The family of this 80-nucleotide RNA sequence from Vicugna pacos is "Small nucleolar RNA U2-19". On this family, see Tycowski et al., Curr Biol 2004: "Guide RNAs with 5' Caps and Novel Box C/D snoRNA-like Domains for Modification of snRNAs in Metazoa". Lineage of the source: Eukaryota > Opisthokonta > Theria > Laurasiatheria > Vicugna. A search with the family's covariance model found it, with a score of 74 bits. Gene Ontology terms of the family: RNA processing and nucleolus.
RNA sequence: GAUCUGUGAUGGAAACAGUCACAUGUGAUCAUCAGAAGACCUUCUAGCCUGCCUGAUGCAUGAUCUCUGUGGUUCUGAAA
Numbered sequence: 001g002a003u004c005u006g007u008g009a010u011g012g013a014a015a016c017a018g019u020c021a022c023a024u025g026u027g028a029u030c031a032u033c034a035g036a037a038g039a040c041c042u043u044c045u046a047g048c049c050u051g052c053c054u055g056a057u058g059c060a061u062g063a064u065c066u067c068u069g070u071g072g073u074u075c076u077g078a079a080a
Base pairs, nucleotide, nucleotide: 030058031057032056033055037050038049040047